[Rfam]
RNA sequence: CCUGCCAAGCCUCCUAAUAAUGCUUAAAUCGGCGGGU
Numbered sequence: 001c002c003u004g005c006c007a008a009g010c011c012u013c014c015u016a017a018u019a020a021u022g023c024u025u026a027a028a029u030c031g032g033c034g035g036g037u
Stems, first nucleotide, its partner, number of pairs: 001036006008024003

Record summary
The record is a 37-nucleotide RNA sequence, which matches "abiF RNA" in Rfam. The base pairs follow the family's consensus structure, which is taken from published work. Rfam classes the family as a small RNA. Actinobacteria, Bacteroidetes, Clostridia, Proteobacteria, one Clostridia phage.